Overview
A member of the RNA family "mir-2188 microRNA precursor family" from Danio rerio, 78 nucleotides long. It is one of the family's seed sequences. Its family is annotated with miRNA-mediated post-transcriptional gene silencing and RISC complex in the Gene Ontology. Lineage of the source: Eukaryota > Bilateria > Deuterostomia > Osteoglossocephalai > Danio.
RNA sequence: CAAUGUGAGAAAGGUCCAACCUCACAUGUCCUGUGAGGCUGAAGGAAGGCUGUGUGAGGUUAGACCUAUCCCACACGG
Numbered sequence: 001c002a003a004u005g006u007g008a009g010a011a012a013g014g015u016c017c018a019a020c021c022u023c024a025c026a027u028g029u030c031c032u033g034u035g036a037g038g039c040u041g042a043a044g045g046a047a048g049g050c051u052g053u054g055u056g057a058g059g060u061u062a063g064a065c066c067u068a069u070c071c072c073a074c075a076c077g078g
Base pairs, nucleotide, nucleotide: 001078004075005074006073007072009070010069012067013066014065015064016063019060020059021058023056024055025054026053027052028051030049031048032047